[Rfam]
About this RNA: Rfam assigns this 100-nucleotide sequence from Populus trichocarpa to the family "Small nucleolar RNA R30/Z108". From the family's description: snoR30 is a C/D box small nucleolar RNA which acts as a methylation guide for 18S ribosomal RNA in plants. The literature on the family includes a 2002 paper in Curr Biol by Marker et al., "Experimental RNomics. Identification of 140 Candidates for Small Non-Messenger RNAs in the Plant Arabidopsis thaliana". The source organism's lineage runs through Eukaryota, Tracheophyta, Salicaceae, Saliceae and Populus. It scores 80 bits against the family's covariance model.

RNA sequence: GGAGGUUACAGUGAUGAAUUACAGCUCCCUCUUCUGAUUUAAAGUUGAGGAAACUAGCUGGCAGAAUCGAACCAAUUUAAUUAACGCCACCACUGAGUAA
Numbered sequence: 001g002g003a004g005g006u007u008a009c010a011g012u013g014a015u016g017a018a019u020u021a022c023a024g025c026u027c028c029c030u031c032u033u034c035u036g037a038u039u040u041a042a043a044g045u046u047g048a049g050g051a052a053a054c055u056a057g058c059u060g061g062c063a064g065a066a067u068c069g070a071a072c073c074a075a076u077u078u079a080a081u082u083a084a085c086g087c088c089a090c091c092a093c094u095g096a097g098u099a100a
Stems, first nucleotide, its partner, number of pairs: 006100004